[Rfam]
RNA sequence: AUCACCUGGGGAUCAGGUUAAAAUGCAUAUUCUGGCUCAGUAGCCCGGGGUGAGGGCUGAGAUUCUGCAUUUCUAACCAGCUCCCAGGUGAGGCUAA
Numbered sequence: 001a002u003c004a005c006c007u008g009g010g011g012a013u014c015a016g017g018u019u020a021a022a023a024u025g026c027a028u029a030u031u032c033u034g035g036c037u038c039a040g041u042a043g044c045c046c047g048g049g050g051u052g053a054g055g056g057c058u059g060a061g062a063u064u065c066u067g068c069a070u071u072u073c074u075a076a077c078c079a080g081c082u083c084c085c086a087g088g089u090g091a092g093g094c095u096a097a
Stems, first nucleotide, its partner, number of pairs: 003090003009084003014080001016078005021072003025068003029064001031062003
Shown here is a 97-nucleotide RNA sequence from Trichechus manatus, a member of the family "mir-544 microRNA precursor family". The base pairs follow the family's consensus structure, which was predicted with RNAalifold. On this family, see Chiang et al., Genes Dev 2010: "Mammalian microRNAs: experimental evaluation of novel and previously annotated genes".